[Rfam]
RNA sequence: UUUAUUGAACACAAUAUUACUUAUAUAUCGCCACAUGAUGGGUGGCCGUUUCUACCUGAAACCGUUCUUUUCAGACUAUAAGUAAACAGCGCGGCUGG
Numbered sequence: 001u002u003u004a005u006u007g008a009a010c011a012c013a014a015u016a017u018u019a020c021u022u023a024u025a026u027a028u029c030g031c032c033a034c035a036u037g038a039u040g041g042g043u044g045g046c047c048g049u050u051u052c053u054a055c056c057u058g059a060a061a062c063c064g065u066u067c068u069u070u071u072c073a074g075a076c077u078a079u080a081a082g083u084a085a086a087c088a089g090c091g092c093g094g095c096u097g098g
Stems, first nucleotide, its partner, number of pairs: 018084008030046005056074006
The record is a 98-nucleotide RNA from Limosilactobacillus gastricus, which matches "Purine riboswitch aptamer" in Rfam.
Taxonomically the source falls in Limosilactobacillus gastricus (Bacteria, Bacillati, Bacillota, Bacilli).
Rfam's curators write: Riboswitches are metabolite binding domains within certain messenger RNAs that serve as precision sensors for their corresponding targets.
Its family is annotated with purine nucleobase biosynthetic process in the Gene Ontology.
The base pairs follow the family's consensus structure, which is taken from published work.